[Rfam]
RNA sequence: CUGCAUGUUAAAAAAAAUAAAAAUGAAAUUCUGCUCCUCGUUCCCAUAAGGAGCAUGAAUAUGUAUAUAACAUGCUACAGAAACAAGGAGUCUUCAGGGCUGCCAGUCUUACAGAAAAGACUGAGUGGUAGUAUAGGUCUCCUACACAU
Dot-bracket structure: ..((((((.....................(.((((((............)))))).)............))))))...........((((........((..((((((((......))))))).)..)).........)))).......
RNA: Small nucleolar RNA U109